[Rfam]
A member of the RNA family "MIR1435 microRNA precursor family" from Setaria viridis, 191 nucleotides long. Its family is annotated with miRNA-mediated post-transcriptional gene silencing and RISC complex in the Gene Ontology. Lineage of the source: Eukaryota > Liliopsida > commelinids > Poaceae > Setaria.

RNA sequence: UUUGUUUGUCCUAAGUCAAACUUGUUCAAUUUUGAUCAAGUUUAUAGAAAAAUAUAACAUCUACACUAUCAAAUAUCAAAAUAUAUUCCAUGGUUUAUUCAAUGAAACAUGAAACAAAUUAGUAUUGUAGAUGUUAUGUUUUUCUAUAAAUUUGAUCAAAGUUGGACAAGUUUGACUUAGGACAAAGCAAA
Numbered sequence: 001u002u003u004g005u006u007u008g009u010c011c012u013a014a015g016u017c018a019a020a021c022u023u024g025u026u027c028a029a030u031u032u033u034g035a036u037c038a039a040g041u042u043u044a045u046a047g048a049a050a051a052a053u054a055u056a057a058c059a060u061c062u063a064c065a066c067u068a069u070c071a072a073a074u075a076u077c078a079a080a081a082u083a084u085a086u087u088c089c090a091u092g093g094u095u096u097a098u099u100c101a102a103u104g105a106a107a108c109a110u111g112a113a114a115c116a117a118a119u120u121a122g123u124a125u126u127g128u129a130g131a132u133g134u135u136a137u138g139u140u141u142u143u144c145u146a147u148a149a150a151u152u153u154g155a156u157c158a159a160a161g162u163u164g165g166a167c168a169a170g171u172u173u174g175a176c177u178u179a180g181g182a183c184a185a186a187g188c189a190a191a
Stems, first nucleotide, its partner, number of pairs: 005186005011180016031160005045146021069122001071120002074117001
Dot-bracket structure: ....(((((.((((((((((((((((....(((((.........(((((((((((((((((((((...(.((.(..........................................).)).)...))))))))))))))))))))).........)))))....)))))))))))))))).))))).....